Description: This 108-nucleotide RNA from Saccharospirillum sp. MSK14-1 belongs to the Rfam family "Guanidine-I riboswitch aptamer". This family represents a conserved RNA structure found upstream of the ykkC and yxkD genes in Bacillus subtilis and related genes in other bacteria. The function of this family is unclear although it has been suggested that it may function to switch on efflux pumps and detoxification systems in response to harmful environmental molecules. The match comes from Rfam's covariance-model search (88 bits).
RNA sequence: GUAAUAGAGCGCUAGGGUUCCGAUUGUUGCCGUGAGCAGCGAUGUCUGGUCCGAGAGCACUCGACCUUUCAGUGAAGGGUUACACGGCGGGACAAAAGCCCGGGAGAC
Numbered sequence: 001g002u003a004a005u006a007g008a009g010c011g012c013u014a015g016g017g018u019u020c021c022g023a024u025u026g027u028u029g030c031c032g033u034g035a036g037c038a039g040c041g042a043u044g045u046c047u048g049g050u051c052c053g054a055g056a057g058c059a060c061u062c063g064a065c066c067u068u069u070c071a072g073u074g075a076a077g078g079g080u081u082a083c084a085c086g087g088c089g090g091g092a093c094a095a096a097a098g099c100c101c102g103g104g105a106g107a108c
Base pairs, nucleotide, nucleotide: 007062008061009060011058012057015052016051020049021048022046023043024042025041026040027039028038029037030036063081064080065079066078067077068076069075070074083103085106089101090100091099
The source organism's lineage runs through Bacteria, Pseudomonadati, Oceanospirillales, Saccharospirillaceae and Saccharospirillum.